[Rfam]
RNA: Ribosomal protein L20 leader
RNA sequence: UGAGGAAAGAAGAGGCACCCGCUUCUCACCUGGUUGACGCAUUAUAGUAGUUAACAGGUCAUGAUUUGAUUAUUUGGAAUUUCUAAAUGAAUCUAUCUGUGUGGGUGCAUUAUGUACCCGCACUUUUUUAUUGAU
Number, nucleotide and partner (000 for none) at each position: 001u000002g000003a000004g000005g000006a000007a000008a000009g000010a000011a026012g025013a024014g023015g022016c021017a000018c000019c000020c000021g016022c015023u014024u013025c012026u011027c000028a059029c058030c057031u000032g000033g000034u000035u000036g052037a051038c050039g048040c047041a000042u000043u000044a000045u000046a000047g040048u039049a000050g038051u037052u036053a000054a000055c000056a000057g030058g029059u028060c000061a000062u000063g000064a000065u000066u000067u000068g000069a000070u000071u000072a000073u000074u000075u000076g000077g000078a000079a000080u000081u000082u000083c000084u000085a000086a000087a000088u000089g000090a000091a000092u000093c000094u000095a000096u000097c000098u000099g000100u122101g121102u120103g119104g118105g117106u116107g115108c114109a113110u000111u000112a000113u109114g108115u107116a106117c105118c104119c103120g102121c101122a100123c000124u000125u000126u000127u000128u000129u000130a000131u000132u000133g000134a000135u000